[Rfam]
RNA sequence: GGAAGAAAAAGGCAAACUAUUCGAAAGGAUAGGACGCAAAGCCUAGGGUCUAAGGUUUAAUCUAUUAAGCUAUGAUCGCCUGGUUGCCAAU
Numbered sequence: 001g002g003a004a005g006a007a008a009a010a011g012g013c014a015a016a017c018u019a020u021u022c023g024a025a026a027g028g029a030u031a032g033g034a035c036g037c038a039a040a041g042c043c044u045a046g047g048g049u050c051u052a053a054g055g056u057u058u059a060a061u062c063u064a065u066u067a068a069g070c071u072a073u074g075a076u077c078g079c080c081u082g083g084u085u086g087c088c089a090a091u
Base pairs, nucleotide, nucleotide: 012037013036017032018031019030020029021028022027040085041084042083043082045081046080047079048076049075050074055070056069057068058067059066060065
The family of this 91-nucleotide RNA sequence from Bacillaceae bacterium SAS-127 is "c-di-GMP-I riboswitch aptamer". Gene Ontology term of the family: cyclic-di-GMP binding. Lineage of the source: Bacteria > Bacillati > Bacilli > Caryophanales > Bacillaceae. The match comes from Rfam's covariance-model search (83 bits).